[Rfam]
RNA sequence: CUCUGGGUCCUCAGGAUUCAGGGCAGAAGGAG
Numbered sequence: 001c002u003c004u005g006g007g008u009c010c011u012c013a014g015g016a017u018u019c020a021g022g023g024c025a026g027a028a029g030g031a032g
Base pairs, nucleotide, nucleotide: 001023002022003021004020005019006018007017008016009015010014

The family of this 32-nucleotide sequence from Bacillus sp. FJAT-26652 is "L31-Firmicutes ribosomal protein leader". By type it is a cis-regulatory leader. Its Rfam clan is "Ribosomal Protein L31 Leader clan". Lineage of the source: Bacteria > Bacillati > Bacillota > Caryophanales > Bacillus.